[Rfam]
A member of the RNA family "U4atac minor spliceosomal RNA" from Nomascus leucogenys, 126 nucleotides long. The family is grouped with related families in Rfam's "U4 clan". The match comes from Rfam's covariance-model search (88 bits). U4atac is an essential component of the minor U12-type spliceosome complex which is required for removal of the rarer class of eukaryotic introns (AT-AC, U12-type).

RNA sequence: ACCACCCUUUUCUUGGGGUUGCGCUACUGUCCAAGGAGUGCAUAGCGAGGGCAGCACUGCUAAUGCCUACACAACACUCCCACCUCAGCUAGAGGUUUGCUUUACCUUGGUGCAGUUUUUGGAAAA
Numbered sequence: 001a002c003c004a005c006c007c008u009u010u011u012c013u014u015g016g017g018g019u020u021g022c023g024c025u026a027c028u029g030u031c032c033a034a035g036g037a038g039u040g041c042a043u044a045g046c047g048a049g050g051g052c053a054g055c056a057c058u059g060c061u062a063a064u065g066c067c068u069a070c071a072c073a074a075c076a077c078u079c080c081c082a083c084c085u086c087a088g089c090u091a092g093a094g095g096u097u098u099g100c101u102u103u104a105c106c107u108u109g110g111u112g113c114a115g116u117u118u119u120u121g122g123a124a125a126a
Base pairs, nucleotide, nucleotide: 006018007017008016009015021060022059023058027054028053029052030051031050032049038046039045083112085110086109087108090104091103092102093101094100